[Rfam]
Nucleotides: 426
Base pairs, nucleotide, nucleotide: 024055025053026052027051028050029049035042036041065072066071076103077102078101079100086094087093106326107325108324109323113153114152115151118148119147121145122144124142125141126140127139128138129137159267160266161264162263163262166260167259168258169257171251172250173249174248175247176246177245179239180238181237182236183235184234185233189205191204192203193202194201208212215225216224276297277296278295279294280293281292282291303320304319305318306317307316360367361366383394384393385392386391
Number, partner (000 for none) and nucleotide at each position: 001000a002000g003000a004000c005000c006000u007000c008000a009000g010000a011000u012000c013000a014000g015000g016000u017000a018000g019000g020000a021000c022000u023000a024055c025053c026052c027051g028050c029049u030000g031000a032000a033000c034000u035042u036041a037000a038000g039000c040000a041036u042035a043000u044000c045000a046000a047000u048000a049029a050028g051027c052026g053025g054000a055024g056000g057000a058000a059000a060000a061000g062000a063000a064000a065072c066071u067000a068000a069000u070000c071066a072065g073000g074000a075000u076103u077102u078101c079100c080000c081000u082000a083000g084000u085000a086094a087093c088000g089000g090000c091000g092000a093087g094086u095000g096000a097000a098000g099000a100079g101078g102077a103076a104000a105000g106326a107325g108324c109323u110000c111000a112000a113153a114152u115151u116000u117000g118148a119147a120000a121145u122144c123000u124142g125141c126140u127139u128138g129137c130000c131000g132000u133000g134000u135000u136000g137129g138128c139127g140126a141125g142124u143000c144122g145121a146000a147119u148118u149000g150000u151115a152114a153113u154000c155000u156000c157000g158000a159267g160266a161264g162263g163262c164000a165000u166260g167259c168258u169257c170000u171251g172250u173249g174248c175247u176246g177245g178000a179239c180238c181237g182236u183235g184234u185233c186000a187000g188000a189205g190000u191204c192203u193202g194201u195000u196000g197000g198000a199000a200000c201194a202193c203192a204191g205189c206000g207000u208212c209000a210000a211000a212208g213000a214000g215225g216224g217000u218000g219000a220000c221000a222000a223000c224216c225215c226000c227000g228000u229000u230000c231000g232000u233185g234184a235183c236182a237181c238180g239179g240000a241000u242000c243000g244000a245177c246176c247175a248174g249173u250172g251171c252000u253000c254000u255000g256000u257169g258168a259167g260166c261000g262163g263162c264161c265000c266160u267159c268000c269000a270000a271000g272000a273000g274000u275000c276297g277296a278295g279294u280293u281292g282291u283000u284000u285000g286000g287000g288000a289000a290000u291282g292281c293280a294279g295278c296277u297276c298000a299000a300000a301000g302000g303320g304319g305318g306317u307316g308000g309000u310000a311000a312000a313000u314000u315000c316307c317306a318305u319304c320303u321000a322000a323109a324108g325107c326106u327000a328000a329000a330000u331000a332000u333000g334000g335000g336000c337000g338000a339000g340000a341000g342000a343000c344000c345000g346000a347000u348000a349000g350000c351000g352000a353000a354000c355000a356000a357000g358000u359000a360367c361366c362000g363000u364000g365000a366361g367360g368000g369000a370000a371000a372000g373000a374000u375000g376000a377000a378000a379000a380000g381000c382000a383394c384393u385392u386391u387000g388000g389000a390000a391386a392385g393384a394383g395000a396000g397000u398000u399000a400000a401000c402000a403000g404000a405000c406000g407000u408000g409000a410000a411000a412000u413000u414000g415000u416000u417000g418000a419000a420000a421000g422000g423000g424000a425000a426000a
Rfam assigns this 426-nucleotide part of an RNA from Mixia osmundae to the family "Eukaryotic large subunit ribosomal RNA". Taxonomically the source falls in Mixia osmundae (Eukaryota, Opisthokonta, Dikarya, Mixiales). Rfam links the family to the GO terms ribosome and structural constituent of ribosome.